[Rfam]
RNA sequence: AUGCCUUAGCAUUCUCAUAAGCAAACAAUGUCUUUCGCCUUUUACUAAAGACAUCCGUGUGAGUGUGUAAUCAUGGGCUUCACGAAUUUUUCUGCCACUUUCUCGAGUGGA
Numbered sequence: 001a002u003g004c005c006u007u008a009g010c011a012u013u014c015u016c017a018u019a020a021g022c023a024a025a026c027a028a029u030g031u032c033u034u035u036c037g038c039c040u041u042u043u044a045c046u047a048a049a050g051a052c053a054u055c056c057g058u059g060u061g062a063g064u065g066u067g068u069a070a071u072c073a074u075g076g077g078c079u080u081c082a083c084g085a086a087u088u089u090u091u092c093u094g095c096c097a098c099u100u101u102c103u104c105g106a107g108u109g110g111a
Stems, first nucleotide, its partner, number of pairs: 003078004009068004014063006028054008095110006
A member of the RNA family "U5 spliceosomal RNA" from Naegleria gruberi, 111 nucleotides long. The source organism's lineage runs through Eukaryota, Tetramitia, Eutetramitea, Naegleriidae and Naegleria. It is annotated as a spliceosomal small nuclear RNA. U5 RNA is a component of both types of known spliceosome. The precise function of this molecule is unknown, though it is known that the 5' loop is required for splice site selection and p220 binding, and that both the 3' stem-loop and the Sm site are important for Sm protein binding and cap methylation.